[Rfam]
RNA sequence: GGCGUAAAGCGCAUGUAGGCGGUGCCUUAAGUCUGUCGUGAAACUGCGGGGCCUAACCCCGUAUGGCGAUGGAAACUGGGGCACUUGAGUGCAGGAGAGGAAAGGGGAACUCCCAGUGUAGCGGUGAAAUGCGUAGAUAUUGGGAAGAACACCGGUGGCGAAGGCGCCUUUCUGGACUGUGUCUGACGCUGAGAUGCGAAAGCCAGGGUAGCGAACGGGAUUAGAUACCCCGGUAGUCCUGGCCGUAAACGAUGGGUACUAGGUGUGGGAGGUAUCGACCCCUUCCGUGCCGGAGUUAACGCAAUAAGUACCCCGCCUGGGGAGUACGGCCGCAAGGCUUAAACUCAAAGGAAU
Numbered sequence: 001g002g003c004g005u006a007a008a009g010c011g012c013a014u015g016u017a018g019g020c021g022g023u024g025c026c027u028u029a030a031g032u033c034u035g036u037c038g039u040g041a042a043a044c045u046g047c048g049g050g051g052c053c054u055a056a057c058c059c060c061g062u063a064u065g066g067c068g069a070u071g072g073a074a075a076c077u078g079g080g081g082c083a084c085u086u087g088a089g090u091g092c093a094g095g096a097g098a099g100g101a102a103a104g105g106g107g108a109a110c111u112c113c114c115a116g117u118g119u120a121g122c123g124g125u126g127a128a129a130u131g132c133g134u135a136g137a138u139a140u141u142g143g144g145a146a147g148a149a150c151a152c153c154g155g156u157g158g159c160g161a162a163g164g165c166g167c168c169u170u171u172c173u174g175g176a177c178u179g180u181g182u183c184u185g186a187c188g189c190u191g192a193g194a195u196g197c198g199a200a201a202g203c204c205a206g207g208g209u210a211g212c213g214a215a216c217g218g219g220a221u222u223a224g225a226u227a228c229c230c231c232g233g234u235a236g237u238c239c240u241g242g243c244c245g246u247a248a249a250c251g252a253u254g255g256g257u258a259c260u261a262g263g264u265g266u267g268g269g270a271g272g273u274a275u276c277g278a279c280c281c282c283u284u285c286c287g288u289g290c291c292g293g294a295g296u297u298a299a300c301g302c303a304a305u306a307a308g309u310a311c312c313c314c315g316c317c318u319g320g321g322g323a324g325u326a327c328g329g330c331c332g333c334a335a336g337g338c339u340u341a342a343a344c345u346c347a348a349a350g351g352a353a354u
Base pairs, nucleotide, nucleotide: 001317002316003315009314011197012196013195014194016191018190019189020188022084023083024082025081026080027079028078030077031076032073033072034071035070036069037068038067039066045063046062047061048060049059050058051057088184089183091180092179093178094177099173100172101171102170103169104168105167106150111145112144113143114142115141116140117139121132122131123130158165159164202243203242204241205240206239207238211237212236216232217231218230219229254313255312256311257310258309259308262291263290264289265288266287267286268285269284270283271282272281295302296301319346320345321344328339329338330337331336
This 354-nucleotide part of an RNA from Succiniclasticum ruminis belongs to the Rfam family "Bacterial small subunit ribosomal RNA". The match comes from Rfam's covariance-model search (1594 bits). Rfam links the family to the GO terms structural constituent of ribosome and ribosome. On this family, see Yusupov et al., Science 2001: "Crystal structure of the ribosome at 5.5 A resolution". Clan: SSU clan.